The family of this 108-nucleotide sequence from Salarias fasciatus is "Vault RNA".

[Rfam]
RNA sequence: GCACUGGCUUAGCUCAGUGGUUACUUCCUCUGAUACUUUGUCCUCUUGACAAUCCUCAGUUCUUCCCUCAUCCGAGGGAUCAAACCACGGGCGCUGUCCAGUGUCUUU
Numbered sequence: 001g002c003a004c005u006g007g008c009u010u011a012g013c014u015c016a017g018u019g020g021u022u023a024c025u026u027c028c029u030c031u032g033a034u035a036c037u038u039u040g041u042c043c044u045c046u047u048g049a050c051a052a053u054c055c056u057c058a059g060u061u062c063u064u065c066c067c068u069c070a071u072c073c074g075a076g077g078g079a080u081c082a083a084a085c086c087a088c089g090g091g092c093g094c095u096g097u098c099c100a101g102u103g104u105c106u107u108u
Stems, first nucleotide, its partner, number of pairs: 002103006012092004017088004026079004
The family's RNA type in Rfam is non-coding RNA gene.